[Rfam]
RNA: Archaeal large subunit ribosomal RNA, nucleotides 621 to 876
RNA sequence: GAGUUGCGACGGUUGGCAAGGCUAAUUCUUAAAGAAGGAGCCGUAGCGAAAGCGAUUACCCGCACAGCAAUGGAGGGGUAGCGUACCCAAGUGCGUUUAGUCAGCCGUGGCAGACCCGAAGCCGCUCGAUCUACGCCUGAGUAGGUUGAAGCUUAGCGAAAGCUAGGUGGAGGACCGAACCGGUUCUGAUGUGCAAAUCGUUCGGAUGACUUGGGUGUAGGGGUUAAAGGCUAAUCUAGAGCGGCAAUAGCGGGUU
Numbered sequence: 001g002a003g004u005u006g007c008g009a010c011g012g013u014u015g016g017c018a019a020g021g022c023u024a025a026u027u028c029u030u031a032a033a034g035a036a037g038g039a040g041c042c043g044u045a046g047c048g049a050a051a052g053c054g055a056u057u058a059c060c061c062g063c064a065c066a067g068c069a070a071u072g073g074a075g076g077g078g079u080a081g082c083g084u085a086c087c088c089a090a091g092u093g094c095g096u097u098u099a100g101u102c103a104g105c106c107g108u109g110g111c112a113g114a115c116c117c118g119a120a121g122c123c124g125c126u127c128g129a130u131c132u133a134c135g136c137c138u139g140a141g142u143a144g145g146u147u148g149a150a151g152c153u154u155a156g157c158g159a160a161a162g163c164u165a166g167g168u169g170g171a172g173g174a175c176c177g178a179a180c181c182g183g184u185u186c187u188g189a190u191g192u193g194c195a196a197a198u199c200g201u202u203c204g205g206a207u208g209a210c211u212u213g214g215g216u217g218u219a220g221g222g223g224u225u226a227a228a229g230g231c232u233a234a235u236c237u238a239g240a241g242c243g244g245c246a247a248u249a250g251c252g253g254g255u256u
Stems, first nucleotide, its partner, number of pairs: 005112003009108009020042004026036004046053002058079004065072002082095004115254002118251001122244006131220011142208001144176004151168007180205004186200001188199002222232003